[Rfam]
The record is a 31-nucleotide RNA from Ceratodon purpureus, which matches "Iron response element II" in Rfam. Pairs were carried over by alignment from the consensus structure, which is taken from published work. It is annotated as a cis-regulatory element.
RNA sequence: ACGAAUUCAGCAGCAGUGACUGCUAAUUUUU
Numbered sequence: 001a002c003g004a005a006u007u008c009a010g011c012a013g014c015a016g017u018g019a020c021u022g023c024u025a026a027u028u029u030u031u
Base pairs, nucleotide, nucleotide: 001031003029004028005027006026007025009024010023011022012021013020014018